[Rfam]
Overview:
Rfam assigns this 124-nucleotide RNA from Providencia sneebia to the family "Salmonella enterica Typhi npcRNA 44". A search with the family's covariance model found it, with a score of 59 bits.
RNA sequence: CUUUAAUAAUCUGGAACAAGCUGAAAAUUGAAAACAACACACAUUGUUUAUCGCUUAAACAAUGUGAGAGUCUCUCAAAAAUCUCAACGUGAAGAUGUUCUCUGUUACGAUGACACAACGUCAU
Number, nucleotide and partner (000 for none) at each position: 001c000002u000003u000004u000005a000006a000007u000008a000009a000010u000011c000012u000013g000014g000015a000016a000017c000018a000019a000020g000021c000022u000023g085024a084025a000026a082027a000028u080029u079030g000031a000032a000033a000034a000035c068036a000037a000038c000039a000040c000041a065042c064043a063044u062045u061046g060047u059048u058049u057050a056051u000052c000053g000054c000055u000056u050057a049058a048059a047060c046061a045062a044063u043064g042065u041066g000067a000068g035069a000070g000071u000072c000073u000074c000075u000076c000077a000078a000079a029080a028081a000082u026083c000084u024085c023086a000087a000088c000089g000090u123091g122092a121093a000094g119095a000096u117097g116098u000099u000100c000101u000102c000103u000104g000105u000106u000107a000108c000109g000110a000111u000112g000113a000114c000115a000116c097117a096118a000119c094120g000121u092122c091123a090124u000